[Rfam]
RNA sequence: CGGCCGCGACCAUAAGGAAACGGCUGAACAGGAAGAAGUCAACAGAGGCCGUAGUGCCAGCCGGGAUCGGUCGAUGGUUGGGAAAGGC
Numbered sequence: 001c002g003g004c005c006g007c008g009a010c011c012a013u014a015a016g017g018a019a020a021c022g023g024c025u026g027a028a029c030a031g032g033a034a035g036a037a038g039u040c041a042a043c044a045g046a047g048g049c050c051g052u053a054g055u056g057c058c059a060g061c062c063g064g065g066a067u068c069g070g071u072c073g074a075u076g077g078u079u080g081g082g083a084a085a086g087g088c
Base pairs, nucleotide, nucleotide: 001026002025004023005022006021010017011016039046040045048088049087050086057081058080059079060078061077062076